Notes
This 104-nucleotide RNA sequence belongs to the Rfam family "Glutamine riboswitch aptamer (glnA leader)". It is one of the family's seed sequences. For this family Rfam cites "Bacterial aptamers that selectively bind glutamine" (Ames and Breaker, RNA Biol, 2011). Rfam links the family to the GO term glutamine binding.
[Rfam]
RNA sequence: GUCGUUUAUCUCAUAAAUAUCUUCAACGAUCUACUUAUAGCGCAAUCAAUAUUUGGUUCAAACCAUUGUGAGACGCAAGUAAGCGGAAGCUGAAGAAACGGAGU
Numbered sequence: 001g002u003c004g005u006u007u008a009u010c011u012c013a014u015a016a017a018u019a020u021c022u023u024c025a026a027c028g029a030u031c032u033a034c035u036u037a038u039a040g041c042g043c044a045a046u047c048a049a050u051a052u053u054u055g056g057u058u059c060a061a062a063c064c065a066u067u068g069u070g071a072g073a074c075g076c077a078a079g080u081a082a083g084c085g086g087a088a089g090c091u092g093a094a095g096a097a098a099c100g101g102a103g104u
Stems, first nucleotide, its partner, number of pairs: 003100005009073008076101001082091003